RNA sequence: CGCCAGCGAGGGCAAACCGCCGGUGACGGCGGGACGCAAAGCCUCCGGCCUUGAGCGUUCAAGGUAGCGGGGUUGCAACA
Numbered sequence: 001c002g003c004c005a006g007c008g009a010g011g012g013c014a015a016a017c018c019g020c021c022g023g024u025g026a027c028g029g030c031g032g033g034a035c036g037c038a039a040a041g042c043c044u045c046c047g048g049c050c051u052u053g054a055g056c057g058u059u060c061a062a063g064g065u066a067g068c069g070g071g072g073u074u075g076c077a078a079c080a
Base pairs, nucleotide, nucleotide: 012037013036017032018031019030020029021028022027040074041073042072043071045070046069047068048065049064050063051062052061053060054059
RNA: c-di-GMP-I riboswitch aptamer